About this RNA:
The record is an 87-nucleotide RNA sequence from Dipodomys ordii, which matches "mir-3473 microRNA precursor family" in Rfam. Gene Ontology terms of the family: cellular response to mechanical stimulus, miRNA-mediated post-transcriptional gene silencing and RISC complex. Taxonomically the source falls in Dipodomys (Eukaryota, Teleostomi, Tetrapoda, Mammalia).
RNA sequence: ACCACUGAGCCACCUUCCCAGCCCCAGUAAAGUUUUUAACGUUUAUUAAAAAUAGGAAUAUUUGGGCUGGGAAGGUGGCUCAGUGGU
Numbered sequence: 001a002c003c004a005c006u007g008a009g010c011c012a013c014c015u016u017c018c019c020a021g022c023c024c025c026a027g028u029a030a031a032g033u034u035u036u037u038a039a040c041g042u043u044u045a046u047u048a049a050a051a052a053u054a055g056g057a058a059u060a061u062u063u064g065g066g067c068u069g070g071g072a073a074g075g076u077g078g079c080u081c082a083g084u085g086g087u
Base pairs, nucleotide, nucleotide: 002086003085004084005083006082007081008080009079010078011077012076013075014074015073016072017071018070019069020068021067022066023065024064